[Rfam]
RNA sequence: GGUCAUGAGCGUCAACACCAAGCCCUGGCUCGCUGACCGGCAACCCUCGCAUCGCGGUGGGGUGCCCCAGGUGACGACCGGACCGGAACGACGUAUUUCGGUAAGCGCGAGGG
Dot-bracket structure: ((((....(.((((.(....((......)).).)))))(((..(((.(........)..))).))).........))))..(((((((.(...).)))))))...........
RNA: SAM (S-adenosyl methionine) riboswitch aptamer